This 70-nucleotide RNA from Macaca mulatta belongs to the Rfam family "mir-196 microRNA precursor family". The source organism's lineage runs through Eukaryota, Vertebrata, Amniota, Cercopithecoidea and Macaca.
[Rfam]
RNA sequence: UCGGUGAUUUAGGUAGUUUCCUGUUGUUGGGAUCCACCUUUCUCUCGACAGCACGACACUGCCUUCAUUA
Dot-bracket structure: ....((((..(((((((.(..((((((((((............))))))))))..).)))))))..))))

The base pairs follow the family's consensus structure, which was predicted with PFOLD.